Overview:
A member of the RNA family "Bacterial large signal recognition particle RNA" from Papillibacter cinnamivorans, 266 nucleotides long. It scores 206 bits against the family's covariance model. NCBI's taxonomy places the organism under Bacteria, Bacillati, Clostridia, Eubacteriales, Papillibacter cinnamivorans. Gene Ontology terms of the family: signal recognition particle, plasma membrane targeting and SRP-dependent cotranslational protein targeting to membrane, signal sequence recognition. Its Rfam clan is "SRP clan".
RNA sequence: CCGCACUAAUCGGGGAGUCAGCGGUGCCCUGUAGCCUGCAACCCGCUACAGCAGGGAUGAAUCCCGGCCCCCGGAUCUGAGUUGUGCCGUCCGCCCCGGAUAAGCGGCGAUGAGAAGCCGGUCUUGCGCAACGGAAUCCCGCGAACCAUGUCAGGCGGGGAACCGAGCAGCAUUAAGCGGAUCCUUUCGUGUGCCGCGAGGGUGCCGUCUUCGAGCCGGCUGUCCGGGUAACGGGCAUAUUUCACGAUUCAAAGGCCGGUGUGCGG
Numbered sequence: 001c002c003g004c005a006c007u008a009a010u011c012g013g014g015g016a017g018u019c020a021g022c023g024g025u026g027c028c029c030u031g032u033a034g035c036c037u038g039c040a041a042c043c044c045g046c047u048a049c050a051g052c053a054g055g056g057a058u059g060a061a062u063c064c065c066g067g068c069c070c071c072c073g074g075a076u077c078u079g080a081g082u083u084g085u086g087c088c089g090u091c092c093g094c095c096c097c098g099g100a101u102a103a104g105c106g107g108c109g110a111u112g113a114g115a116a117g118c119c120g121g122u123c124u125u126g127c128g129c130a131a132c133g134g135a136a137u138c139c140c141g142c143g144a145a146c147c148a149u150g151u152c153a154g155g156c157g158g159g160g161a162a163c164c165g166a167g168c169a170g171c172a173u174u175a176a177g178c179g180g181a182u183c184c185u186u187u188c189g190u191g192u193g194c195c196g197c198g199a200g201g202g203u204g205c206c207g208u209c210u211u212c213g214a215g216c217c218g219g220c221u222g223u224c225c226g227g228g229u230a231a232c233g234g235g236c237a238u239a240u241u242u243c244a245c246g247a248u249u250c251a252a253a254g255g256c257c258g259g260u261g262u263g264c265g266g
Stems, first nucleotide, its partner, number of pairs: 001266006009058003012030004017025003035055005064259006073250005079243003083239006092233002096227006104220002106217003114212004119207004123200006129191002132189005139180004148173004156165003